[Rfam]
RNA sequence: ACCCCGUCACAACGGCUUCCUGGCGUGACGGUUAACUUUAAUGGAGCG
Numbered sequence: 001a002c003c004c005c006g007u008c009a010c011a012a013c014g015g016c017u018u019c020c021u022g023g024c025g026u027g028a029c030g031g032u033u034a035a036c037u038u039u040a041a042u043g044g045a046g047c048g
Stems, first nucleotide, its partner, number of pairs: 004031007013022002015047003019044002
Annotation
This 48-nucleotide RNA from Roseovarius aestuarii belongs to the Rfam family "SAM/SAH riboswitch aptamer". Pairs were carried over by alignment from the consensus structure, which is taken from published work. Gene Ontology terms of the family: S-adenosylmethionine metabolic process and regulation of gene expression. It scores 58 bits against the family's covariance model. The source organism's lineage runs through Bacteria, Pseudomonadota, Alphaproteobacteria, Roseobacteraceae and Roseovarius.